[Rfam]
RNA sequence: CGAAAGUUAGCUCAACUGGCAGAGCAAUCGACUGAAAAUCGAUGUGUCGCAGGUUCAACUCCUGCACUUUCCA
Numbered sequence: 001c002g003a004a005a006g007u008u009a010g011c012u013c014a015a016c017u018g019g020c021a022g023a024g025c026a027a028u029c030g031a032c033u034g035a036a037a038a039u040c041g042a043u044g045u046g047u048c049g050c051a052g053g054u055u056c057a058a059c060u061c062c063u064g065c066a067c068u069u070u071c072c073a
Stems, first nucleotide, its partner, number of pairs: 002071006010025004027043005049065005
The family of this 73-nucleotide RNA sequence from Leptolyngbya sp. NIES-3755 is "tRNA".
The match comes from Rfam's covariance-model search (63 bits).
Pairs were carried over by alignment from the consensus structure, which is taken from published work.